Hairpin ribozyme 1 from viruses-like metatranscriptomes: a 71-nucleotide sequence. Its family is annotated with RNA nuclease activity in the Gene Ontology.
RNA sequence: UAGCGGUCUACACUUAUGUGUGGGAAGCUAGCGAGGGAAACAUGCAUACGUUAUGCAGCAUAUUAACUCGC
Numbered sequence: 001u002a003g004c005g006g007u008c009u010a011c012a013c014u015u016a017u018g019u020g021u022g023g024g025a026a027g028c029u030a031g032c033g034a035g036g037g038a039a040a041c042a043u044g045c046a047u048a049c050g051u052u053a054u055g056c057a058g059c060a061u062a063u064u065a066a067c068u069c070g071c
Base pairs, nucleotide, nucleotide: 001030002029003028004027009022010021011020012019013018031071032070033069034068035067043057044056045055046054047053048052